Shown here is a 47-nucleotide RNA sequence, a member of the family "DUF3800-XI RNA".
RNA sequence: UGGGCUGGUCAGGUGACCCGGGUCCACCUGCGCUGGGGAAGUUCCCC
Numbered sequence: 001u002g003g004g005c006u007g008g009u010c011a012g013g014u015g016a017c018c019c020g021g022g023u024c025c026a027c028c029u030g031c032g033c034u035g036g037g038g039a040a041g042u043u044c045c046c047c
Base pairs, nucleotide, nucleotide: 001026002025003024004023005022006021007018008017009016010015

The base pairs follow the family's consensus structure, which is taken from published work. Rfam classes the family as a small RNA.